[Rfam]
RNA sequence: CCCACGCGGUGUGUGUAGACCUCCGGCUGAGGUUGAAGUUCUGGUGUACUUCCCCGAUACCAGAAUGUUCCCUCGGACGGAGCUCUAUAUACACCGCCGACGUGUC
Numbered sequence: 001c002c003c004a005c006g007c008g009g010u011g012u013g014u015g016u017a018g019a020c021c022u023c024c025g026g027c028u029g030a031g032g033u034u035g036a037a038g039u040u041c042u043g044g045u046g047u048a049c050u051u052c053c054c055c056g057a058u059a060c061c062a063g064a065a066u067g068u069u070c071c072c073u074c075g076g077a078c079g080g081a082g083c084u085c086u087a088u089a090u091a092c093a094c095c096g097c098c099g100a101c102g103u104g105u106c
Base pairs, nucleotide, nucleotide: 010093011092012091013090014089015088016087018085019084021082022081023080024079025078027076028075029074030073031072032071035070036068038066039065040064041063042062043061044060045059046058047057
Dot-bracket structure: .........(((((((.((.(((((.((((((..((.((((((((((.........)))))))))).).))))))).))))).)).))))))).............